[Rfam]
RNA sequence: CUUGUUAGAAAUGCAGAUUCCUGGGCCCCACCCCCAGAAAUUCUGAUUCAGGACGUCUGGGGGGUGGGGCCCAGGAAUCUGCAUCUCUGACAAGAUCC
Number, nucleotide and partner (000 for none) at each position: 001c000002u000003u000004g000005u000006u000007a000008g000009a086010a000011a084012u083013g082014c081015a080016g079017a078018u000019u076020c075021c074022u073023g072024g071025g070026c069027c068028c067029c066030a065031c064032c063033c062034c061035c060036a000037g000038a000039a000040a000041u000042u000043c000044u000045g000046a000047u000048u000049c000050a000051g000052g000053a000054c000055g000056u000057c000058u000059g000060g035061g034062g033063g032064g031065u030066g029067g028068g027069g026070c025071c024072c023073a022074g021075g020076a019077a000078u017079c016080u015081g014082c013083a012084u011085c000086u009087c000088u000089g000090a000091c000092a000093a000094g000095a000096u000097c000098c000
Overview: This 98-nucleotide RNA sequence from Trichechus manatus belongs to the Rfam family "mir-1289 microRNA precursor family". The family has 6 seed sequences and 31 matches in Rfam 15.1. The match comes from Rfam's covariance-model search (67 bits). Pairs were carried over by alignment from the consensus structure, which was predicted with RNAalifold.